The record is a 78-nucleotide RNA from Chelydra serpentina, which matches "Mammalian CPEB3 ribozyme" in Rfam.
Pairs were carried over by alignment from the consensus structure, which is taken from published work.

[Rfam]
RNA sequence: UUGCCUUGCCUGGGGGCCAUAGCGGAAGCGUUUACAUCGCAGCCCCGGUCAGAUUCUUAUGAAUCUGCAAAUUCUGCU
Number, nucleotide and partner (000 for none) at each position: 001u000002u000003g000004c000005c000006u000007u000008g000009c000010c000011u000012g000013g046014g045015g044016g043017c042018c000019a000020u000021a078022g077023c076024g075025g074026a073027a072028g040029c039030g038031u000032u000033u000034a000035c000036a000037u000038c030039g029040c028041a000042g017043c016044c015045c014046c013047g000048g000049u000050c067051a066052g065053a064054u063055u062056c061057u000058u000059a000060u000061g056062a055063a054064u053065c052066u051067g050068c000069a000070a000071a000072u027073u026074c025075u024076g023077c022078u021

A search with the family's covariance model found it, with a score of 72 bits. Rfam links the family to the GO term RNA nuclease activity.